A member of the RNA family "UnaL2 LINE 3' element" from Anguilla anguilla, 54 nucleotides long. The eel long interspersed element (LINE) UnaL2 and its partner short interspersed element (SINE) share a conserved 3' tail containing a stem-loop that is critical for their retrotransposition. Presumably, the first step of retrotransposition is the recognition of their 3' tails by UnaL2-encoded reverse transcriptase. Rfam classes the family as a cis-regulatory element.
RNA sequence: CAAAUGCUGUAAUGUAAAUCGCUCUGGAUAAGAGCGUCUGCUAAAUGCCUGUAA
Dot-bracket structure: ............((((...((((((.....))))))..))).)...........

Source information
The base pairs follow the family's consensus structure, which is taken from published work.